This 128-nucleotide RNA from Camelus dromedarius belongs to the Rfam family "Small nucleolar RNA SNORA31". NCBI's taxonomy places the organism under Eukaryota, Gnathostomata, Artiodactyla, Camelidae, Camelus. The base pairs follow the family's consensus structure, which was predicted with RNAalifold. About the family: ACA31 (SNORA31) belongs to the H/ACA class of snoRNAs which are thought to guide the sites of modification of uridines to pseudouridines. ACA31 is predicted to guide the pseudouridylation of U3713 in 28S rRNA and U218 in 18S rRNA. This family includes the mouse homologue snoMBI-161. By type it is an H/ACA-box small nucleolar RNA.

RNA sequence: AUGCAUCUAUUUGACAGGCCUAGAGCGAUUACUUCUGCUGCUAAGGUUUCUCUUACAGAUACAAGAAAAAAGCAUCCUGGCGCUUUCUGUCUGUCUGUGGCAGCCCAGGUUAAAUGGGGGAAAUACAG
Numbered sequence: 001a002u003g004c005a006u007c008u009a010u011u012u013g014a015c016a017g018g019c020c021u022a023g024a025g026c027g028a029u030u031a032c033u034u035c036u037g038c039u040g041c042u043a044a045g046g047u048u049u050c051u052c053u054u055a056c057a058g059a060u061a062c063a064a065g066a067a068a069a070a071a072g073c074a075u076c077c078u079g080g081c082g083c084u085u086u087c088u089g090u091c092u093g094u095c096u097g098u099g100g101c102a103g104c105c106c107a108g109g110u111u112a113a114a115u116g117g118g119g120g121a122a123a124u125a126c127a128g
Stems, first nucleotide, its partner, number of pairs: 002063002005060004013051001016049005024039003027035002075121004086109004091103005
Dot-bracket structure: .((.((((....(..(((((...(((((.....)).))).....))))).).....)))).))...........((((.......((((.(((((...)))))..))))........)))).......